[Rfam]
RNA sequence: UUUCCUAAUUCGCAGAAUCCGCUAAAGGAACGGGGGACCCAAUCUUCCGGGGUGAAGCCGCAGCAUCAAGCGGCCGGGCGACUCUUACCGUCCGAAUCCGUCAGCUAACUCCGUAUGCGUUGUUUGAGAGAGGAA
Numbered sequence: 001u002u003u004c005c006u007a008a009u010u011c012g013c014a015g016a017a018u019c020c021g022c023u024a025a026a027g028g029a030a031c032g033g034g035g036g037a038c039c040c041a042a043u044c045u046u047c048c049g050g051g052g053u054g055a056a057g058c059c060g061c062a063g064c065a066u067c068a069a070g071c072g073g074c075c076g077g078g079c080g081a082c083u084c085u086u087a088c089c090g091u092c093c094g095a096a097u098c099c100g101u102c103a104g105c106u107a108a109c110u111c112c113g114u115a116u117g118c119g120u121u122g123u124u125u126g127a128g129a130g131a132g133g134a135a
Stems, first nucleotide, its partner, number of pairs: 011119004018029003030114006040049001050099003058073004076093004

This 135-nucleotide sequence from Metabacillus indicus belongs to the Rfam family "c-di-AMP riboswitch aptamer (ydaO/yuaA leader)". The source organism's lineage runs through Bacteria, Bacillota, Bacilli, Bacillaceae and Metabacillus. Rfam describes the family as follows. This family represents a conserved RNA structure found upstream of the ydaO and yuaA genes in Bacillus subtilis and related genes in other bacteria. The ydaO/yuaA element is thought to act as a genetic 'off' switch for the ydaO and yuaA genes in its native state.